[Rfam]
Shown here is a 78-nucleotide RNA from Microctonus aethiopoides, a member of the family "mir-71 microRNA precursor family". Lineage of the source: Eukaryota > Opisthokonta > Altocrustacea > Pterygota > Microctonus.
RNA sequence: UCUACUUGAAAGACAUGGGUAGUGAGAUGUUCAUUGCGUUAUUAUAACGCAUCUCACUACCUUGUCUUUCAUGUAGCG
Numbered sequence: 001u002c003u004a005c006u007u008g009a010a011a012g013a014c015a016u017g018g019g020u021a022g023u024g025a026g027a028u029g030u031u032c033a034u035u036g037c038g039u040u041a042u043u044a045u046a047a048c049g050c051a052u053c054u055c056a057c058u059a060c061c062u063u064g065u066c067u068u069u070c071a072u073g074u075a076g077c078g
Stems, first nucleotide, its partner, number of pairs: 008070008017062003021058009
The match comes from Rfam's covariance-model search (71 bits). Pairs were carried over by alignment from the consensus structure, which was predicted with RNAalifold.